[Rfam]
RNA: Archaeal large subunit ribosomal RNA, nucleotides 1717 to 2072
RNA sequence: UAGCAUAAUCAAGGUAAGGGAAUUCGGCAAAAUAGCCUGUAACUUCGGGAUAAAGGGUGCCAGUAAUGAGAGUUACUGGUCGCAGUGACAAGAGAAAUCCGACUGUUUAGUAAAAACAUAGGUCCCAGCUAGUUCGAAAGGAUGUGUAUUGGGGCCGAAGCCUGCCCAGUGUCGGCAUCUGAACUCCGGUUUCAACCGGUUGAAGGACCGAUAAACGGCGGGGGUAACUAUGACCCUCUUAAGGUAGCGUAAUACCUUGUCGCUUAAUUGGCGACUUGCAUGAAGGCUCAACGAGGUUUCUACUGUCCCUACCUUGACGCUAGUGAAAACAAUCAAUCUGGUGCACAAUCCAGAUC
Numbered sequence: 001u002a003g004c005a006u007a008a009u010c011a012a013g014g015u016a017a018g019g020g021a022a023u024u025c026g027g028c029a030a031a032a033u034a035g036c037c038u039g040u041a042a043c044u045u046c047g048g049g050a051u052a053a054a055g056g057g058u059g060c061c062a063g064u065a066a067u068g069a070g071a072g073u074u075a076c077u078g079g080u081c082g083c084a085g086u087g088a089c090a091a092g093a094g095a096a097a098u099c100c101g102a103c104u105g106u107u108u109a110g111u112a113a114a115a116a117c118a119u120a121g122g123u124c125c126c127a128g129c130u131a132g133u134u135c136g137a138a139a140g141g142a143u144g145u146g147u148a149u150u151g152g153g154g155c156c157g158a159a160g161c162c163u164g165c166c167c168a169g170u171g172u173c174g175g176c177a178u179c180u181g182a183a184c185u186c187c188g189g190u191u192u193c194a195a196c197c198g199g200u201u202g203a204a205g206g207a208c209c210g211a212u213a214a215a216c217g218g219c220g221g222g223g224g225u226a227a228c229u230a231u232g233a234c235c236c237u238c239u240u241a242a243g244g245u246a247g248c249g250u251a252a253u254a255c256c257u258u259g260u261c262g263c264u265u266a267a268u269u270g271g272c273g274a275c276u277u278g279c280a281u282g283a284a285g286g287c288u289c290a291a292c293g294a295g296g297u298u299u300c301u302a303c304u305g306u307c308c309c310u311a312c313c314u315u316g317a318c319g320c321u322a323g324u325g326a327a328a329a330c331a332a333u334c335a336a337u338c339u340g341g342u343g344c345a346c347a348a349u350c351c352a353g354a355u356c
Stems, first nucleotide, its partner, number of pairs: 001322004009317008018308003035058002037055002043048001059080009081085001093301007100293002104118003121156008129146001132143004159288004164219003169216002171212005178207003186199004220238006239243001259275006337354005